[Rfam]
RNA sequence: CAGUCCGCCACGUGGGACAGCCCCACCGGGUCCCCGUGCACGCGGUUACGCUGACCGCGUGCGCCCUUGACACAGCGAGGGCGCAAAGCCGACAGCCGUCGCAUCCCAGGGAGCUUGACCAUG
Numbered sequence: 001c002a003g004u005c006c007g008c009c010a011c012g013u014g015g016g017a018c019a020g021c022c023c024c025a026c027c028g029g030g031u032c033c034c035c036g037u038g039c040a041c042g043c044g045g046u047u048a049c050g051c052u053g054a055c056c057g058c059g060u061g062c063g064c065c066c067u068u069g070a071c072a073c074a075g076c077g078a079g080g081g082c083g084c085a086a087a088g089c090c091g092a093c094a095g096c097c098g099u100c101g102c103a104u105c106c107c108a109g110g111g112a113g114c115u116u117g118a119c120c121a122u123g
Stems, first nucleotide, its partner, number of pairs: 060085004065080004088102002091100003
Rfam assigns this 123-nucleotide sequence from Streptomyces sp. A1136 to the family "Streptomyces-metH RNA". NCBI's taxonomy places the organism under Bacteria, Bacillati, Kitasatosporales, Streptomycetaceae, Streptomyces. Pairs were carried over by alignment from the consensus structure, which is taken from published work.